[Rfam]
RNA sequence: CCGCCCGUCGCUACUACCGAUUGAAUGGUCAAGCUGAGGCAAUCGGAUUGGUACUGUUUUAGCGGCUACGUCGCUUGACUGGUAUCGAGAAGAUGACCAAACUUGAUCAUUUAGAGGAAGUAAAAGUCGUAACAAGGUUUCCGUAGGUGAACCUGCGGAAGGAUCAUUA
Number, nucleotide and partner (000 for none) at each position: 001c136002c000003g133004c000005c000006c129007g128008u000009c126010g000011c000012u122013a121014c120015u119016a000017c117018c116019g000020a000021u113022u000023g112024a111025a110026u109027g108028g107029u106030c105031a104032a103033g102034c000035u101036g000037a000038g098039g097040c000041a000042a094043u093044c092045g000046g000047a000048u088049u087050g086051g085052u084053a083054c082055u081056g080057u000058u078059u000060u000061a075062g074063c073064g072065g071066c000067u000068a000069c000070g000071u065072c064073g063074c062075u061076u000077g000078a058079c000080u056081g055082g054083u053084a052085u051086c050087g049088a048089g000090a000091a000092g044093a043094u042095g000096a000097c039098c038099a000100a000101a035102c033103u032104u031105g030106a029107u028108c027109a026110u025111u024112u023113a021114g000115a000116g018117g017118a000119a015120g014121u013122a012123a000124a000125a000126g009127u000128c007129g006130u000131a000132a000133c003134a000135a000136g001137g000138u161139u160140u159141c158142c157143g156144u155145a154146g153147g152148u000149g000150a000151a000152c147153c146154u145155g144156c143157g142158g141159a140160a139161g138162g000163a000164u000165c000166a000167u000168u000169a000